[Rfam]
Group I catalytic intron: a 342-nucleotide sequence from Tetrahymena thermophila. Group I catalytic introns are large self-splicing ribozymes. They catalyse their own excision from mRNA, tRNA and rRNA precursors in a wide range of organisms. The core secondary structure consists of 9 paired regions (P1-P9). For this family Rfam cites "Crystal structure of a group I ribozyme domain: principles of RNA packing" (Cate et al., Science, 1996). Taxonomically the source falls in Tetrahymena (Eukaryota, Sar, Alveolata, Ciliophora). Rfam 15.1 lists 5,602 matches to the family in 1,395 species.

RNA sequence: AUGACUCUCUAAAUAGCAAUAUUUACCUUUGGAGGGAAAAGUUAUCAGGCAUGCACCUGGUAGCUAGUCUUUAAACCAAUAGAUUGCAUCGGUUUAAAAGGCAAGACCGUCAAAUUGCGGGAAAGGGGUCAACAGCCGUUCAGUACCAAGUCUCAGGGGAAACUUUGAGAUGGCCUUGCAAAGGGUAUGGUAAUAAGCUGACGGACAUGGUCCUAACCACGCAGCCAAGUCCUAAGUCAACAGAUCUUCUGUUGAUAUGGAUGCAGUUCACAGACUAAAUGUCGGUCGGGGAAGAUGUAUUCUUCUCAUAAGAUAUAGUCGGACCUCUCCUUAAUGGGAGCU
Numbered sequence: 001a002u003g004a005c006u007c008u009c010u011a012a013a014u015a016g017c018a019a020u021a022u023u024u025a026c027c028u029u030u031g032g033a034g035g036g037a038a039a040a041g042u043u044a045u046c047a048g049g050c051a052u053g054c055a056c057c058u059g060g061u062a063g064c065u066a067g068u069c070u071u072u073a074a075a076c077c078a079a080u081a082g083a084u085u086g087c088a089u090c091g092g093u094u095u096a097a098a099a100g101g102c103a104a105g106a107c108c109g110u111c112a113a114a115u116u117g118c119g120g121g122a123a124a125g126g127g128g129u130c131a132a133c134a135g136c137c138g139u140u141c142a143g144u145a146c147c148a149a150g151u152c153u154c155a156g157g158g159g160a161a162a163c164u165u166u167g168a169g170a171u172g173g174c175c176u177u178g179c180a181a182a183g184g185g186u187a188u189g190g191u192a193a194u195a196a197g198c199u200g201a202c203g204g205a206c207a208u209g210g211u212c213c214u215a216a217c218c219a220c221g222c223a224g225c226c227a228a229g230u231c232c233u234a235a236g237u238c239a240a241c242a243g244a245u246c247u248u249c250u251g252u253u254g255a256u257a258u259g260g261a262u263g264c265a266g267u268u269c270a271c272a273g274a275c276u277a278a279a280u281g282u283c284g285g286u287c288g289g290g291g292a293a294g295a296u297g298u299a300u301u302c303u304u305c306u307c308a309u310a311a312g313a314u315a316u317a318g319u320c321g322g323a324c325c326u327c328u329c330c331u332u333a334a335u336g337g338g339a340g341c342u
Stems, first nucleotide, its partner, number of pairs: 005036009040065010105287005111281002116223004120218002126213005224267002229262004237254001239252001271321001273320005289307007327340005